[Rfam]
RNA: T-box leader
Organism: Ruthenibacterium lactatiformans
RNA sequence: UCAAACAUGUUGACUGAGAGAGUACGCGCGAGGUUCCGUCCUCCUGCAGAGAGGGGCGCCGCAGGCUGCAAGCGCCCGGGGAUGGUUUCGCGCCGAAGUUCACUCACGAGUGGCUUUGCUGAAGGUUGCGGCUGGUAGGCAGAGACGGGUGUUCCCGUUACAGAACAACAGAGUGUUUGCUCUUGUACAAUCGUACGGCAAAAACGUGGGUGGUACCGCGGAGUUUACGAACAGGUAAGCUUCGUCCCUGUC
Numbered sequence: 001u002c003a004a005a006c007a008u009g010u011u012g013a014c015u016g017a018g019a020g021a022g023u024a025c026g027c028g029c030g031a032g033g034u035u036c037c038g039u040c041c042u043c044c045u046g047c048a049g050a051g052a053g054g055g056g057c058g059c060c061g062c063a064g065g066c067u068g069c070a071a072g073c074g075c076c077c078g079g080g081g082a083u084g085g086u087u088u089c090g091c092g093c094c095g096a097a098g099u100u101c102a103c104u105c106a107c108g109a110g111u112g113g114c115u116u117u118g119c120u121g122a123a124g125g126u127u128g129c130g131g132c133u134g135g136u137a138g139g140c141a142g143a144g145a146c147g148g149g150u151g152u153u154c155c156c157g158u159u160a161c162a163g164a165a166c167a168a169c170a171g172a173g174u175g176u177u178u179g180c181u182c183u184u185g186u187a188c189a190a191u192c193g194u195a196c197g198g199c200a201a202a203a204a205c206g207u208g209g210g211u212g213g214u215a216c217c218g219c220g221g222a223g224u225u226u227a228c229g230a231a232c233a234g235g236u237a238a239g240c241u242u243c244g245u246c247c248c249u250g251u252c
Stems, first nucleotide, its partner, number of pairs: 007111002015106004026093005042082003054077006114144007146157003176202006208248003218245011